[Rfam]
RNA sequence: AUGUGUGCUGUGAUGAUGCAAUUUGUGGACUAGAGUUUCUGAUCUUGCAUUUGAAGACAAACCCUUGGCUGUCUGAGCACACAU
Numbered sequence: 001a002u003g004u005g006u007g008c009u010g011u012g013a014u015g016a017u018g019c020a021a022u023u024u025g026u027g028g029a030c031u032a033g034a035g036u037u038u039c040u041g042a043u044c045u046u047g048c049a050u051u052u053g054a055a056g057a058c059a060a061a062c063c064c065u066u067g068g069c070u071g072u073c074u075g076a077g078c079a080c081a082c083a084u
Base pairs, nucleotide, nucleotide: 001084002083003082004081005080006079007078008077036056037055038054039053043049

The family of this 84-nucleotide RNA from Phtheirospermum japonicum is "Small nucleolar RNA Z157/R69/R10". Rfam classes the family as a C/D-box small nucleolar RNA. The family is grouped with related families in Rfam's "SNORD52 clan". The family's consensus secondary structure was predicted with PFOLD. The match comes from Rfam's covariance-model search (75 bits). The organism belongs to Phtheirospermum, within Eukaryota.